[Rfam]
RNA: RAGATH-18 RNA
RNA sequence: CCUUUGGAGCGUCAAAAAAACGUGAUUAGCCGGUCAGAAAUGGCGGCGAAAGCGGAUGCGGUGAAUUAGGAA
Numbered sequence: 001c002c003u004u005u006g007g008a009g010c011g012u013c014a015a016a017a018a019a020a021c022g023u024g025a026u027u028a029g030c031c032g033g034u035c036a037g038a039a040a041u042g043g044c045g046g047c048g049a050a051a052g053c054g055g056a057u058g059c060g061g062u063g064a065a066u067u068a069g070g071a072a
Base pairs, nucleotide, nucleotide: 001070002069003068009059010058011057012056013055021054022053023052029047030046031045034043035042